RNA sequence: CCUAUACAGAUGUAUCAACGCAAGACAGUUGGGCAUCUCCCUGUAGGAACAUGUUUUAUAGAAGCAUUGACAACAAGUCUUAUUGCGUAGCUUAUGAGUUGAAAUAAGAUGAGUCAAUGUGGAAUAGGUUAACCGUGAGACCUUUAGUUGAAAAACUAUAAAAUUGACCUAGAAAUACUGAAUUGUUGUUAUUUCUAGUUACGGUAUA
Numbered sequence: 001c002c003u004a005u006a007c008a009g010a011u012g013u014a015u016c017a018a019c020g021c022a023a024g025a026c027a028g029u030u031g032g033g034c035a036u037c038u039c040c041c042u043g044u045a046g047g048a049a050c051a052u053g054u055u056u057u058a059u060a061g062a063a064g065c066a067u068u069g070a071c072a073a074c075a076a077g078u079c080u081u082a083u084u085g086c087g088u089a090g091c092u093u094a095u096g097a098g099u100u101g102a103a104a105u106a107a108g109a110u111g112a113g114u115c116a117a118u119g120u121g122g123a124a125u126a127g128g129u130u131a132a133c134c135g136u137g138a139g140a141c142c143u144u145u146a147g148u149u150g151a152a153a154a155a156c157u158a159u160a161a162a163a164u165u166g167a168c169c170u171a172g173a174a175a176u177a178c179u180g181a182a183u184u185g186u187u188g189u190u191a192u193u194u195c196u197a198g199u200u201a202c203g204g205u206a207u208a
Base pairs, nucleotide, nucleotide: 001047002046003045004044005043006042008038009037010036011035012034013033015032016031017030018029019028020026064120065119066118067117068116069115070114071113078109079108080107081106082105083104084103089100090099092097126143127142128141129140130139132205133204134203135202136201137200138164145158146157147156148155149154169198170197171196172195173194174193175192176191177190178188
The family of this 208-nucleotide RNA sequence is "IS605-orfB-I RNA". The family's RNA type in Rfam is small RNA.